[Rfam]
RNA sequence: GGACGAAGACAGGGGAGCACGUUCACGACGUGCUGAGAGUGCGGACCAGCCGCAGACCCUCCGAACCUGAUCCGGUUAGCACCGGCGAUAGGGAGUCACACAUGCACCGAC
Numbered sequence: 001g002g003a004c005g006a007a008g009a010c011a012g013g014g015g016a017g018c019a020c021g022u023u024c025a026c027g028a029c030g031u032g033c034u035g036a037g038a039g040u041g042c043g044g045a046c047c048a049g050c051c052g053c054a055g056a057c058c059c060u061c062c063g064a065a066c067c068u069g070a071u072c073c074g075g076u077u078a079g080c081a082c083c084g085g086c087g088a089u090a091g092g093g094a095g096u097c098a099c100a101c102a103u104g105c106a107c108c109g110a111c
Stems, first nucleotide, its partner, number of pairs: 008097003011060004017033005040054005066092004072085004
Shown here is a 111-nucleotide RNA from Nocardioides sp. Root122, a member of the family "TPP riboswitch aptamer (THI element)". The source organism's lineage runs through Bacteria, Bacillati, Actinomycetes, Nocardioidaceae and Nocardioides. It scores 64 bits against the family's covariance model. For this family Rfam cites "Comparative genomics of thiamin biosynthesis in procaryotes. New genes and regulatory mechanisms" (Rodionov et al., J Biol Chem, 2002). The base pairs follow the family's consensus structure, which is taken from published work.